Shown here is a 42-nucleotide RNA sequence from Sodalis glossinidius, a member of the family "nuoG RNA". The sequence is in the family's curated seed alignment.
RNA sequence: GCAUUUUUGAUUAACGCCCGCCGUUGGCGGGCCUCACCUGAG
Numbered sequence: 001g002c003a004u005u006u007u008u009g010a011u012u013a014a015c016g017c018c019c020g021c022c023g024u025u026g027g028c029g030g031g032c033c034u035c036a037c038c039u040g041a042g
Stems, first nucleotide, its partner, number of pairs: 016032007